This 273-nucleotide part of an RNA from Cohaesibacter gelatinilyticus belongs to the Rfam family "Bacterial large subunit ribosomal RNA". NCBI's taxonomy places the organism under Bacteria, Pseudomonadota, Hyphomicrobiales, Cohaesibacteraceae, Cohaesibacter. The base pairs follow the family's consensus structure, which is taken from published work.
RNA sequence: GAUAAAGAGUGUGAGAGACACUCUCGCCGAAAGUCCAAGGGUUCCUGUGCAAUGCUAAUCAGCGCAGGGUUAGUCGGCCCCUAAGGCGAGGCAGAAAUGCGUAGUCGAUGGGAAUGAGGUUAAUAUUCCUCAACCAGUGGGAUGUGACGAAUUCCGGUAGUUGUAUUGUCUUAUUGGAUUGAUGAUGCAGCGUAGGAGUUCCAGGAAAUAGCACCCACAUCAGACCGUACCCUAAACCGACACAGGUGGACAGGUAGAGUAUACCAAGGCGCU
Numbered sequence: 001g002a003u004a005a006a007g008a009g010u011g012u013g014a015g016a017g018a019c020a021c022u023c024u025c026g027c028c029g030a031a032a033g034u035c036c037a038a039g040g041g042u043u044c045c046u047g048u049g050c051a052a053u054g055c056u057a058a059u060c061a062g063c064g065c066a067g068g069g070u071u072a073g074u075c076g077g078c079c080c081c082u083a084a085g086g087c088g089a090g091g092c093a094g095a096a097a098u099g100c101g102u103a104g105u106c107g108a109u110g111g112g113a114a115u116g117a118g119g120u121u122a123a124u125a126u127u128c129c130u131c132a133a134c135c136a137g138u139g140g141g142a143u144g145u146g147a148c149g150a151a152u153u154c155c156g157g158u159a160g161u162u163g164u165a166u167u168g169u170c171u172u173a174u175u176g177g178a179u180u181g182a183u184g185a186u187g188c189a190g191c192g193u194a195g196g197a198g199u200u201c202c203a204g205g206a207a208a209u210a211g212c213a214c215c216c217a218c219a220u221c222a223g224a225c226c227g228u229a230c231c232c233u234a235a236a237c238c239g240a241c242a243c244a245g246g247u248g249g250a251c252a253g254g255u256a257g258a259g260u261a262u263a264c265c266a267a268g269g270c271g272c273u
Stems, first nucleotide, its partner, number of pairs: 006024006025271004033251004039231002044068006053061002075227003080111002085106003089102001091100003115132005135223001136220001140216002143213003149201004160191011237246002253265004